The record is a 101-nucleotide RNA from Caloranaerobacter sp. TR13, which matches "pan motif" in Rfam. Rfam classes the family as a cis-regulatory element. The match comes from Rfam's covariance-model search (60 bits).
RNA sequence: UGGAUAGUAUCCUUAAAAGGAGCUAUACCGUUUAGUUAAUUUAUUUGACAAUAAUAGAACAAAAUAAGCUGCUCUGAGCCUAUGUGGACGGAGACAGGAAG
Dot-bracket structure: ((((((((.((........))))))).)))......................................((((((((..((.....)).))))).)))....